[Rfam]
RNA sequence: GGGGGCGAAAAGGGCUCGACGGGGAUAGGUAGGGUUAAAUCGCAGGCCGUGGUCGCACUCGCCACGUUAAAAAGGGUGCAAAAACACAAUUGCCAACGAAUACGCUUACGCUCAGGCUGCUUAAUUAAGUGCAGCCUCGUUCCUUGAGUGCUUUGCCUUCCGGCCUCAAGGGGCGUGACCAAGGAAGGCUCUGGGGAUUCCUGGUGGCAAGACAGGAAUUUCCAAGAUACCUCUUGCCUGGUAGAGGGCUUCGGUGCCUGUGACGAGCUCUCUACGAGAUUCCUCCACAGGCUAAGCCUGUAGUGGUUUAAUCUGAACUAUCUUCGGACGCGGGUUCAAUUCCCGCCGCCUCCACCA
Numbered sequence: 001g002g003g004g005g006c007g008a009a010a011a012g013g014g015c016u017c018g019a020c021g022g023g024g025a026u027a028g029g030u031a032g033g034g035u036u037a038a039a040u041c042g043c044a045g046g047c048c049g050u051g052g053u054c055g056c057a058c059u060c061g062c063c064a065c066g067u068u069a070a071a072a073a074g075g076g077u078g079c080a081a082a083a084a085c086a087c088a089a090u091u092g093c094c095a096a097c098g099a100a101u102a103c104g105c106u107u108a109c110g111c112u113c114a115g116g117c118u119g120c121u122u123a124a125u126u127a128a129g130u131g132c133a134g135c136c137u138c139g140u141u142c143c144u145u146g147a148g149u150g151c152u153u154u155g156c157c158u159u160c161c162g163g164c165c166u167c168a169a170g171g172g173g174c175g176u177g178a179c180c181a182a183g184g185a186a187g188g189c190u191c192u193g194g195g196g197a198u199u200c201c202u203g204g205u206g207g208c209a210a211g212a213c214a215g216g217a218a219u220u221u222c223c224a225a226g227a228u229a230c231c232u233c234u235u236g237c238c239u240g241g242u243a244g245a246g247g248g249c250u251u252c253g254g255u256g257c258c259u260g261u262g263a264c265g266a267g268c269u270c271u272c273u274a275c276g277a278g279a280u281u282c283c284u285c286c287a288c289a290g291g292c293u294a295a296g297c298c299u300g301u302a303g304u305g306g307u308u309u310a311a312u313c314u315g316a317a318c319u320a321u322c323u324u325c326g327g328a329c330g331c332g333g334g335u336u337c338a339a340u341u342c343c344c345g346c347c348g349c350c351u352c353c354a355c356c357a
Base pairs, nucleotide, nucleotide: 001353002352003351004350005349006348007347020326021325022324023323024322025321026320027319028318030316032314033313034312035311036310037309038308039307040306041305042304043300044299045298046297047296048066049065050064051063052062055079056078057077058076059075060074114137115136116135117134118133119132120131138175139174140173141172142171143170145168146167147166148165150164151163152162155189156188157187158186159185160184193223194222195221196220197219198218199217200216201215206238207237208236209235210234241275242274243273244272245271246270247269248268249267250266252265253264256292257291258290259289260288261287262286330346331345332344333343334342
transfer-messenger RNA: a 357-nucleotide RNA from Caldimicrobium thiodismutans.
NCBI's taxonomy places the organism under Bacteria, Pseudomonadati, Thermodesulfobacteriota, Thermodesulfobacteria, Caldimicrobium.
From the family's description: Bacterial tmRNA, also known as 10Sa RNA or SsrA, is named for its dual tRNA and mRNA-like properties. Its role is to liberate the mRNA from a stalled ribosome. To accomplish this part of the tmRNA is used as a reading frame that ends in a translation stop signal.
The family's consensus secondary structure is taken from published work.